mir-548 microRNA precursor family: an 84-nucleotide RNA from Pan troglodytes. A search with the family's covariance model found it, with a score of 93 bits. The base pairs follow the family's consensus structure, which was predicted with WAR. Lineage of the source: Eukaryota > Teleostomi > Sarcopterygii > Euarchontoglires > Pan. The literature on the family includes a 2010 paper in BMC Biol by Witten et al., "Ultra-high throughput sequencing-based small RNA discovery and discrete statistical biomarker analysis in a collection of cervical tumours and matched controls".
RNA sequence: UUUUAGAUUGGUGCAAAAGUAAUUGUGGUUUUUGCCAUUAAAAAUGAUGGCAAAAACUGUAAUUACUUUUGCACCAAUCUAAUA
Number, nucleotide and partner (000 for none) at each position: 001u084002u000003u082004u081005a080006g079007a078008u077009u076010g075011g074012u073013g072014c071015a070016a069017a068018a067019g066020u065021a064022a063023u062024u061025g060026u059027g058028g057029u056030u055031u054032u053033u052034g051035c050036c049037a048038u047039u046040a045041a000042a000043a000044a000045u040046g039047a038048u037049g036050g035051c034052a033053a032054a031055a030056a029057c028058u027059g026060u025061a024062a023063u022064u021065a020066c019067u018068u017069u016070u015071g014072c013073a012074c011075c010076a009077a008078u007079c006080u005081a004082a003083u000084a001